[Rfam]
RNA sequence: GUCGAACAAGGGCAUAACCGUCGAGAGACGGCGACGCAAAGCCUCCGGUCCCAUUGCUCCAGCGAGCAACGGAUAGCGGGGUUGCCGGC
Numbered sequence: 001g002u003c004g005a006a007c008a009a010g011g012g013c014a015u016a017a018c019c020g021u022c023g024a025g026a027g028a029c030g031g032c033g034a035c036g037c038a039a040a041g042c043c044u045c046c047g048g049u050c051c052c053a054u055u056g057c058u059c060c061a062g063c064g065a066g067c068a069a070c071g072g073a074u075a076g077c078g079g080g081g082u083u084g085c086c087g088g089c
Base pairs, nucleotide, nucleotide: 012037013036018031019030020029021028022027040083041082042081043080045079046078047077048074049073050072055068056067057066058065

Shown here is an 89-nucleotide RNA from Povalibacter uvarum, a member of the family "c-di-GMP-I riboswitch aptamer". The organism belongs to Povalibacter, within Bacteria.